[Rfam]
RNA sequence: ACAACAACAAUAACAAGCAAUGCCCUACACAAUAAGAACAAGACGUACCGACUCCGGCACAACAAAAACAACAACGCAGGGGACGCAGCUAACUGAUUCUUUUGGAGAGGACUAGCCGUUGGGGUUCGCCCCACAGCCAGGCAGAGAACAACAAAACUGCUCUACAAAGCAGCGCCCGCACUGGUUGAGAUCCUUGAUAGAACGGCUGUAUCGGCUUCCAAAGCAAUCCGUUUGCUACUGACUCCCGAGAUUGGGAGUCUUUUCCCAAAGCCACUGGGCCGAGGGAACGGGUCGACAAACAAAAACAACAAGCCCGAAUACAACAAUAAAAACAAAGCACGAACCAAUUUGGGGGGGAGCGCAAGCUCCCCCAGUAGCUUCUACCUCCCUCCUCGCACACCUUCCCCC
Numbered sequence: 001a002c003a004a005c006a007a008c009a010a011u012a013a014c015a016a017g018c019a020a021u022g023c024c025c026u027a028c029a030c031a032a033u034a035a036g037a038a039c040a041a042g043a044c045g046u047a048c049c050g051a052c053u054c055c056g057g058c059a060c061a062a063c064a065a066a067a068a069c070a071a072c073a074a075c076g077c078a079g080g081g082g083a084c085g086c087a088g089c090u091a092a093c094u095g096a097u098u099c100u101u102u103u104g105g106a107g108a109g110g111a112c113u114a115g116c117c118g119u120u121g122g123g124g125u126u127c128g129c130c131c132c133a134c135a136g137c138c139a140g141g142c143a144g145a146g147a148a149c150a151a152c153a154a155a156a157c158u159g160c161u162c163u164a165c166a167a168a169g170c171a172g173c174g175c176c177c178g179c180a181c182u183g184g185u186u187g188a189g190a191u192c193c194u195u196g197a198u199a200g201a202a203c204g205g206c207u208g209u210a211u212c213g214g215c216u217u218c219c220a221a222a223g224c225a226a227u228c229c230g231u232u233u234g235c236u237a238c239u240g241a242c243u244c245c246c247g248a249g250a251u252u253g254g255g256a257g258u259c260u261u262u263u264c265c266c267a268a269a270g271c272c273a274c275u276g277g278g279c280c281g282a283g284g285g286a287a288c289g290g291g292u293c294g295a296c297a298a299a300c301a302a303a304a305a306c307a308a309c310a311a312g313c314c315c316g317a318a319u320a321c322a323a324c325a326a327u328a329a330a331a332a333c334a335a336a337g338c339a340c341g342a343a344c345c346a347a348u349u350u351g352g353g354g355g356g357g358a359g360c361g362c363a364a365g366c367u368c369c370c371c372c373a374g375u376a377g378c379u380u381c382u383a384c385c386u387c388c389c390u391c392c393u394c395g396c397a398c399a400c401c402u403u404c405c406c407c408c
Stems, first nucleotide, its partner, number of pairs: 049085002052082004100223005114216003134187007157172005241258005282390005289315003293312001335380004352375001353372008